[Rfam]
RNA sequence: CCGGUCGCCCAGUAAUGGGGCCGGCUGAGUCAAGGAGGCGUCAAGACGUCUUCGGCUUGGCGCUGUCUUGUAUCCAUGUUGCUUCGAAGGAGGAUAUGGCUAUGAGAA
Number, nucleotide and partner (000 for none) at each position: 001c024002c023003g022004g021005u020006c019007g000008c018009c017010c000011a000012g000013u000014a000015a000016u000017g009018g008019g006020g005021c004022c003023g002024g001025c000026u000027g000028a000029g000030u000031c000032a000033a000034g000035g066036a000037g064038g063039c062040g061041u060042c059043a058044a057045g000046a000047c000048g000049u000050c000051u000052u000053c000054g000055g000056c000057u044058u043059g042060g041061c040062g039063c038064u037065g000066u035067c106068u105069u104070g103071u102072a101073u000074c099075c098076a097077u096078g095079u094080u093081g000082c092083u091084u090085c000086g000087a000088a000089g000090g084091a083092g082093g080094a079095u078096a077097u076098g075099g074100c000101u072102a071103u070104g069105a068106g067107a000108a000
The family of this 108-nucleotide sequence from Rhizobium gallicum is "Repression of heat shock gene expression (ROSE) element". This family represents a 5' UTR cis-regulatory element found in heat shock mRNAs and is known as the ROSE (repression of heat shock gene expression) element. The ROSE element is a negative regulator of heat shock gene expression. The secondary structure is thought to be regulated by temperature. This regulation blocks access to the ribosome binding site under normal conditions. During heat shock however, the structure changes freeing the ribosome binding site and allowing expression to occur. Lineage of the source: Bacteria > Pseudomonadota > Rhizobiaceae > Rhizobium > Rhizobium gallicum bv. gallicum. Rfam 15.1 lists 381 matches to the family in 262 species. It is annotated as an RNA thermoregulator. Pairs were carried over by alignment from the consensus structure, which is taken from published work.